Overview
U2 spliceosomal RNA: a 191-nucleotide RNA sequence from Mus musculus. Rfam 15.1 lists 71,512 matches to the family in 2,642 species. Its Rfam clan is "U2 clan". For this family Rfam cites "Crystal structure of a model branchpoint-U2 snRNA duplex containing bulged adenosines" (Berglund et al., RNA, 2001). The organism belongs to Mus, within Eukaryota. By type it is a spliceosomal small nuclear RNA. Pairs were carried over by alignment from the consensus structure, which is taken from published work. About the family: U2 is a small nuclear RNA (snRNA) component of the spliceosome (involved in pre-mRNA splicing).
RNA sequence: AUUGCUCGUCGGCCUUUUGGCUAAGAUCAAGUGUAGUAUCUGUUCUUAUCAAUUUAAUAUCUGAUACUUCCUCUAUCUGAGGACAAUGUAUUAAAUGGAUUUUUGGAAGUAGGAGUUGGAAUAGGAGCUUGCUCCGUCCAUUCCACGCAUCGACCUGGUAUUGCAGUACCUCCAGGAACGGUGCACCCCCU
Numbered sequence: 001a002u003u004g005c006u007c008g009u010c011g012g013c014c015u016u017u018u019g020g021c022u023a024a025g026a027u028c029a030a031g032u033g034u035a036g037u038a039u040c041u042g043u044u045c046u047u048a049u050c051a052a053u054u055u056a057a058u059a060u061c062u063g064a065u066a067c068u069u070c071c072u073c074u075a076u077c078u079g080a081g082g083a084c085a086a087u088g089u090a091u092u093a094a095a096u097g098g099a100u101u102u103u104u105g106g107a108a109g110u111a112g113g114a115g116u117u118g119g120a121a122u123a124g125g126a127g128c129u130u131g132c133u134c135c136g137u138c139c140a141u142u143c144c145a146c147g148c149a150u151c152g153a154c155c156u157g158g159u160a161u162u163g164c165a166g167u168a169c170c171u172c173c174a175g176g177a178a179c180g181g182u183g184c185a186c187c188c189c190c191u
Stems, first nucleotide, its partner, number of pairs: 009024001011022004047066005069083005112144005118138002124135004147184006154176005